[Rfam]
RNA sequence: GUCACUUGGGGAGCUUGUGAAAAUGCAUAUUCUGAUCCGGUAGGUUUGGGGUAGACAUAAGAUUCUGCAUUUUUAACAAGCUUUCAGGUGAUGCUAA
Numbered sequence: 001g002u003c004a005c006u007u008g009g010g011g012a013g014c015u016u017g018u019g020a021a022a023a024u025g026c027a028u029a030u031u032c033u034g035a036u037c038c039g040g041u042a043g044g045u046u047u048g049g050g051g052u053a054g055a056c057a058u059a060a061g062a063u064u065c066u067g068c069a070u071u072u073u074u075a076a077c078a079a080g081c082u083u084u085c086a087g088g089u090g091a092u093g094c095u096a097a
Stems, first nucleotide, its partner, number of pairs: 003090003009084003014080005020074001021072003025068003029064001031062003
A member of the RNA family "mir-544 microRNA precursor family" from Vulpes vulpes, 97 nucleotides long.
It scores 68 bits against the family's covariance model.
Rfam links the family to the GO terms miRNA-mediated post-transcriptional gene silencing and RISC complex.
The organism belongs to Vulpes, within Eukaryota.
The family's consensus secondary structure was predicted with RNAalifold.